RNA sequence: CUGGCAUUAUGAAGGCCUGUACUGAAGACAGCAAGCUGUUAGUGCAGGCCAGAUGCUUUCCUG
Numbered sequence: 001c002u003g004g005c006a007u008u009a010u011g012a013a014g015g016c017c018u019g020u021a022c023u024g025a026a027g028a029c030a031g032c033a034a035g036c037u038g039u040u041a042g043u044g045c046a047g048g049c050c051a052g053a054u055g056c057u058u059u060c061c062u063g
Base pairs, nucleotide, nucleotide: 001063003061004060014050015049016048017047018046019045020044021043022042023041029038030037031036
This 63-nucleotide RNA sequence from Cervus hanglu belongs to the Rfam family "Selenocysteine insertion sequence 1". For this family Rfam cites "A novel RNA structural motif in the selenocysteine insertion element of eukaryotic selenoprotein mRNAs" (Walczak et al., RNA, 1996). The family's consensus secondary structure is taken from published work. Rfam classes the family as a cis-regulatory element.